Description: Rfam assigns this 505-nucleotide RNA from Thermomonospora echinospora to the family "Saccharopolyspora sRNA 350". On this family, see Liu et al., PLoS One 2013: "Prediction and characterization of small non-coding RNAs related to secondary metabolites in Saccharopolyspora erythraea". A search with the family's covariance model found it, with a score of 201 bits. The family's RNA type in Rfam is antisense RNA. The family's consensus secondary structure was predicted with RNAfold.
RNA sequence: CGGACGGUGAAGUCCCAGGUGCCCGGCUCCUCCUGCAGCGCCUGGUCGCCGAGAUGGUCGCCGUCCGCCAGCACGCCCAGCACGUUCUCCUCGCCGUACUUGCCGCUGCCGAUCCUGUUCACCUUGCCGUGCGCGAUCAGCAGCAGCCGGUCCACCUCGUGGCCGGCCUCGGCGAUGACCUCGCCGGACUGGUACUCGUGCUGCUCGAACCGUUCCGCCAGCGCCUCCAGCACGGCCGCGUCGCCGUACCCGCGCAGCACCGGGAUCUCGCCCAGCUCGGCGGGGAUGACCCGCACCUCGGCGCCGACGUUGGUGAACGAGACGCGCCCGUCGCCGAGCACGUAGGUCAGCCGCCGGUUGACCCGGUACGUCCCGGCGGAGACCUGCACCCAGGGCAGCAGCCGCAGCAGCCAGCGGGAGGUGAUGUUCUGCAUCUGCGGCACCGACUUGGUCGUCGAUGCCAGGUUGCGCGCCGCCGCGGUGCUGAGGCUGGUGAGUCCCCCGC
Numbered sequence: 001c002g003g004a005c006g007g008u009g010a011a012g013u014c015c016c017a018g019g020u021g022c023c024c025g026g027c028u029c030c031u032c033c034u035g036c037a038g039c040g041c042c043u044g045g046u047c048g049c050c051g052a053g054a055u056g057g058u059c060g061c062c063g064u065c066c067g068c069c070a071g072c073a074c075g076c077c078c079a080g081c082a083c084g085u086u087c088u089c090c091u092c093g094c095c096g097u098a099c100u101u102g103c104c105g106c107u108g109c110c111g112a113u114c115c116u117g118u119u120c121a122c123c124u125u126g127c128c129g130u131g132c133g134c135g136a137u138c139a140g141c142a143g144c145a146g147c148c149g150g151u152c153c154a155c156c157u158c159g160u161g162g163c164c165g166g167c168c169u170c171g172g173c174g175a176u177g178a179c180c181u182c183g184c185c186g187g188a189c190u191g192g193u194a195c196u197c198g199u200g201c202u203g204c205u206c207g208a209a210c211c212g213u214u215c216c217g218c219c220a221g222c223g224c225c226u227c228c229a230g231c232a233c234g235g236c237c238g239c240g241u242c243g244c245c246g247u248a249c250c251c252g253c254g255c256a257g258c259a260c261c262g263g264g265a266u267c268u269c270g271c272c273c274a275g276c277u278c279g280g281c282g283g284g285g286a287u288g289a290c291c292c293g294c295a296c297c298u299c300g301g302c303g304c305c306g307a308c309g310u311u312g313g314u315g316a317a318c319g320a321g322a323c324g325c326g327c328c329c330g331u332c333g334c335c336g337a338g339c340a341c342g343u344a345g346g347u348c349a350g351c352c353g354c355c356g357g358u359u360g361a362c363c364c365g366g367u368a369c370g371u372c373c374c375g376g377c378g379g380a381g382a383c384c385u386g387c388a389c390c391c392a393g394g395g396c397a398g399c400a401g402c403c404g405c406a407g408c409a410g411c412c413a414g415c416g417g418g419a420g421g422u423g424a425u426g427u428u429c430u431g432c433a434u435c436u437g438c439g440g441c442a443c444c445g446a447c448u449u450g451g452u453c454g455u456c457g458a459u460g461c462c463a464g465g466u467u468g469c470g471c472g473c474c475g476c477c478g479c480g481g482u483g484c485u486g487a488g489g490c491u492g493g494u495g496a497g498u499c500c501c502c503c504g505c
Base pairs, nucleotide, nucleotide: 006390007389008388009387011385012384015381018328019327021325022324027321028320029319031316032315036312037311038310039309040308042306045305047303048302049301050300051299052298055232058229060227063224064223065111067109068108075103077102079100080099082097083096084095086093117222118221119220122217126213127212129210130209131206133204134203135202140197142196143195147192148191150189151188152187153186156183157178158177166173167172234296237293240290241289242288243287245285249283250282253279254278256277257276258275261270262269329342330341331340351379352378353377354376355375356374357373360372361371362370391431392430393429394428395427396426397425399423400422403418405416407415437476438475439474440473443470446467447465448464449463450462451461452460478505480501481500484497485496